Shown here is a 125-nucleotide RNA sequence from Selenihalanaerobacter shriftii, a member of the family "Molybdenum/Tungsten riboswitch aptamer (Moco RNA motif)". Lineage of the source: Bacteria > Bacillati > Bacillota > Clostridia > Selenihalanaerobacter.

RNA sequence: UUGAUUAGUUAUCUUCGAAUUAAGAUUGCCUAAAGGAGCAAGGUCUAUGGUGUCUUAAAUGCGAUAGGGUAUGAUGCGAAAGGAUUAUGCCUCCUAAGUUGGAAAGGAGAUAGUAAUAUUUAAAU
Numbered sequence: 001u002u003g004a005u006u007a008g009u010u011a012u013c014u015u016c017g018a019a020u021u022a023a024g025a026u027u028g029c030c031u032a033a034a035g036g037a038g039c040a041a042g043g044u045c046u047a048u049g050g051u052g053u054c055u056u057a058a059a060u061g062c063g064a065u066a067g068g069g070u071a072u073g074a075u076g077c078g079a080a081a082g083g084a085u086u087a088u089g090c091c092u093c094c095u096a097a098g099u100u101g102g103a104a105a106g107g108a109g110a111u112a113g114u115a116a117u118a119u120u121u122a123a124a125u
Stems, first nucleotide, its partner, number of pairs: 003119001006116001011111006020058007028051003034046003067092009077082001093102002
The match comes from Rfam's covariance-model search (50 bits).